RNA sequence: GUGCUGUCUUGAAAAGAGCCAAAUUUGAGCAUCAGAAGACCUUCCAGUCAGCUUGAUGCAUGAUCUCUGUAGCUCUGAGA
Numbered sequence: 001g002u003g004c005u006g007u008c009u010u011g012a013a014a015a016g017a018g019c020c021a022a023a024u025u026u027g028a029g030c031a032u033c034a035g036a037a038g039a040c041c042u043u044c045c046a047g048u049c050a051g052c053u054u055g056a057u058g059c060a061u062g063a064u065c066u067c068u069g070u071a072g073c074u075c076u077g078a079g080a
Stems, first nucleotide, its partner, number of pairs: 029059005038049003
The family of this 80-nucleotide RNA from Rhinolophus ferrumequinum is "Small nucleolar RNA U2-19". Taxonomically the source falls in Rhinolophus (Eukaryota, Vertebrata, Gnathostomata, Sarcopterygii). The literature on the family includes a 2004 paper in Curr Biol by Tycowski et al., "Guide RNAs with 5' Caps and Novel Box C/D snoRNA-like Domains for Modification of snRNAs in Metazoa".